[Rfam]
RNA sequence: GUCUAACACAGCUCUUUUAGAACUUUGUCUAGCAGGUUUUCUGACGGUUGGAAAACCCAU
Numbered sequence: 001g002u003c004u005a006a007c008a009c010a011g012c013u014c015u016u017u018u019a020g021a022a023c024u025u026u027g028u029c030u031a032g033c034a035g036g037u038u039u040u041c042u043g044a045c046g047g048u049u050g051g052a053a054a055a056c057c058c059a060u
Stems, first nucleotide, its partner, number of pairs: 035057010

About this RNA
The record is a 60-nucleotide sequence from Mus musculus, which matches "U7 small nuclear RNA" in Rfam. The source organism's lineage runs through Eukaryota, Bilateria, Craniata, Theria and Mus. Rfam 15.1 lists 10,439 matches to the family in 569 species. The literature on the family includes a 1994 paper in Nucleic Acids Res by Spycher et al., "3' end processing of mouse histone pre-mRNA: evidence for additional base-pairing between U7 snRNA and pre-mRNA". The base pairs follow the family's consensus structure, which was predicted with PFOLD.